[Rfam]
RNA sequence: UGAUCGGGAGGCCUCCGGUGGGACGGAAGCCAUGAAUAGAUCGAAACGUACCGUCUCGUAUGGGCGAGAUGCCGUAGCCCGACGGCAGUCUUG
Numbered sequence: 001u002g003a004u005c006g007g008g009a010g011g012c013c014u015c016c017g018g019u020g021g022g023a024c025g026g027a028a029g030c031c032a033u034g035a036a037u038a039g040a041u042c043g044a045a046a047c048g049u050a051c052c053g054u055c056u057c058g059u060a061u062g063g064g065c066g067a068g069a070u071g072c073c074g075u076a077g078c079c080c081g082a083c084g085g086c087a088g089u090c091u092u093g
Base pairs, nucleotide, nucleotide: 001043002042003041004040005039010031011030012029014027015026016025017024065093066092067091068090069089070087071086072085073084074083
The record is a 93-nucleotide RNA sequence from Sulfitobacter sp. JL08, which matches "Rhodo-rpoB RNA" in Rfam. A search with the family's covariance model found it, with a score of 88 bits. Taxonomically the source falls in Sulfitobacter (Bacteria, Pseudomonadati, Pseudomonadota, Roseobacteraceae).